[Rfam]
RNA sequence: UGAGAGUUUGAGGACAUAGCAGAAGCAUUCAUAGUGCAGCCAUGUCAGAUCCCAACAAAUCUGUGAGUUCUGCU
Dot-bracket structure: ...........[[....((((((((((.......)))..]]....(((((........)))))....)))))))
Numbered sequence: 001u002g003a004g005a006g007u008u009u010g011a012g013g014a015c016a017u018a019g020c021a022g023a024a025g026c027a028u029u030c031a032u033a034g035u036g037c038a039g040c041c042a043u044g045u046c047a048g049a050u051c052c053c054a055a056c057a058a059a060u061c062u063g064u065g066a067g068u069u070c071u072g073c074u
Stems, first nucleotide, its partner, number of pairs: 012041002018074007025037003046063005